[Rfam]
RNA sequence: AUACUUACCUGUCCGGCCUGCGACCUCGAGCAAGAAGGGGGUCUAGGUAGUGCUUGUACCUCGCCUUGUACUAUGCUUGGGGUAGCGCUGUGUGCGGGGCAAGUCCUCGUUACAACGGAAUAAUUUCUGGCAGGCCGUUGCACGCGCUUGCGCGUCCUCGGC
Numbered sequence: 001a002u003a004c005u006u007a008c009c010u011g012u013c014c015g016g017c018c019u020g021c022g023a024c025c026u027c028g029a030g031c032a033a034g035a036a037g038g039g040g041g042u043c044u045a046g047g048u049a050g051u052g053c054u055u056g057u058a059c060c061u062c063g064c065c066u067u068g069u070a071c072u073a074u075g076c077u078u079g080g081g082g083u084a085g086c087g088c089u090g091u092g093u094g095c096g097g098g099g100c101a102a103g104u105c106c107u108c109g110u111u112a113c114a115a116c117g118g119a120a121u122a123a124u125u126u127c128u129g130g131c132a133g134g135c136c137g138u139u140g141c142a143c144g145c146g147c148u149u150g151c152g153c154g155u156c157c158u159c160g161g162c
Stems, first nucleotide, its partner, number of pairs: 012119004016048005023042005049089004054085001060080002063076002091114003094110001096107001098106002135161003143154004
RNA: U1 spliceosomal RNA